[Rfam]
RNA sequence: CCUAGCUCUCACAAGCUAGGCUGUGUUAUGUCGUACCUUUGGUACU
Numbered sequence: 001c002c003u004a005g006c007u008c009u010c011a012c013a014a015g016c017u018a019g020g021c022u023g024u025g026u027u028a029u030g031u032c033g034u035a036c037c038u039u040u041g042g043u044a045c046u
Stems, first nucleotide, its partner, number of pairs: 001020007033045005